[Rfam]
RNA sequence: GGGCUGUGAGGAAUAUUGCGCCCUGUGAUGGUAGGGUCCAUCACGAUCACCAUCUAAAAGUUGGUGAAUGGUUGCCUAGCUGAGCUC
Numbered sequence: 001g002g003g004c005u006g007u008g009a010g011g012a013a014u015a016u017u018g019c020g021c022c023c024u025g026u027g028a029u030g031g032u033a034g035g036g037u038c039c040a041u042c043a044c045g046a047u048c049a050c051c052a053u054c055u056a057a058a059a060g061u062u063g064g065u066g067a068a069u070g071g072u073u074g075c076c077u078a079g080c081u082g083a084g085c086u087c
Base pairs, nucleotide, nucleotide: 001087002086003085004084